[Rfam]
RNA sequence: AGAGUAGACUGAGCAGUCGCGUGAUUCACUUCACGAGGAAAGUCCGAGCUCCAUAGGGUAAGGAUGCCAGGUAAUGCCUGGUGGAGGCAACUCCAAGGAUAGUGCAACAGAGAUAAACCGCCAUUAUGGUAAGGGUGGAAAGGUGGGGUAAGAGCCCACCAGCAGUUAGGUAACUAACUGGCUAUGUAAACCCCAUCCGGAGCAAGACCAAGCAGGGGCCGAUAUAAAGAUAACCCGUCUUUGUCCCGUAGGUAGGUCGCUAGAGGCUACUGGCGACAGUAGUCGUAGAUAGAUGACUGUUCAAGACAGAACUCGGCUUAUAGGCCUGCUCAUUUU
Number, nucleotide and partner (000 for none) at each position: 001a000002g331003a330004g329005u328006a327007g326008a000009c324010u323011g321012a301013g300014c299015a298016g297017u296018c295019g000020c035021g034022u033023g032024a031025u000026u000027c000028a000029c000030u000031u024032c023033a022034c021035g020036a000037g000038g000039a000040a319041a318042g317043u000044c316045c315046g314047a313048g312049c202050u201051c200052c199053a000054u000055a000056g000057g236058g235059u000060a000061a000062g198063g197064a196065u195066g194067c081068c080069a079070g078071g077072u000073a000074a000075u000076g000077c071078c070079u069080g068081g067082u096083g094084g093085a092086g091087g000088c000089a000090a000091c086092u085093c084094c083095a000096a082097g193098g192099a000100u000101a000102g191103u190104g187105c186106a185107a000108c000109a000110g000111a000112g000113a000114u000115a000116a000117a000118c134119c133120g130121c129122c128123a127124u000125u000126a000127u123128g122129g121130u120131a000132a000133g119134g118135g000136u000137g000138g000139a000140a000141a000142g160143g159144u158145g157146g156147g155148g000149u000150a000151a000152g000153a000154g000155c147156c146157c145158a144159c143160c142161a000162g182163c180164a179165g178166u177167u176168a175169g174170g000171u000172a000173a000174c169175u168176a167177a166178c165179u164180g163181g000182c162183u000184a000185u106186g105187u104188a000189a000190a103191c102192c098193c097194c066195a065196u064197c063198c062199g052200g051201a050202g049203c000204a000205a000206g258207a257208c256209c255210a000211a000212g000213c000214a000215g000216g247217g246218g245219c000220c243221g242222a000223u000224a000225u000226a000227a241228a240229g239230a238231u237232a000233a000234c000235c058236c057237g231238u230239c229240u228241u227242u221243g220244u000245c218246c217247c216248g000249u000250a000251g000252g000253u000254a000255g209256g208257u207258c206259g000260c000261u000262a000263g000264a000265g284266g283267c282268u281269a280270c279271u278272g277273g000274c000275g000276a000277c272278a271279g270280u269281a268282g267283u266284c265285g000286u000287a000288g000289a000290u000291a000292g000293a000294u000295g018296a017297c016298u015299g014300u013301u012302c000303a000304a000305g000306a000307c000308a000309g000310a000311a000312c048313u047314c046315g045316g044317c042318u041319u040320a000321u011322a000323g010324g009325c000326c007327u006328g005329c004330u003331c002332a000333u000334u000335u000336u000
The record is a 336-nucleotide sequence from Acetoanaerobium sticklandii, which matches "Bacterial RNase P class A" in Rfam. The source organism's lineage runs through Bacteria, Bacillota, Filifactoraceae, Acetoanaerobium and Acetoanaerobium sticklandii.